[Rfam]
RNA sequence: AAAACACCCUGAUGCAGCAGGACUUGCUUCAGUGGGGCUUUAGUGCUCACUGAGUCUGCCUCUUGAGUGUGUCAUU
Numbered sequence: 001a002a003a004a005c006a007c008c009c010u011g012a013u014g015c016a017g018c019a020g021g022a023c024u025u026g027c028u029u030c031a032g033u034g035g036g037g038c039u040u041u042a043g044u045g046c047u048c049a050c051u052g053a054g055u056c057u058g059c060c061u062c063u064u065g066a067g068u069g070u071g072u073c074a075u076u
Stems, first nucleotide, its partner, number of pairs: 001075001004072004009067002012064001014062001017059003021056003029053008037044002
The record is a 76-nucleotide sequence from Cnephaeus nilssonii, which matches "mir-9229 microRNA precursor family" in Rfam. Pairs were carried over by alignment from the consensus structure, which was predicted with RNAalifold. Lineage of the source: Eukaryota > Teleostomi > Amniota > Theria > Cnephaeus.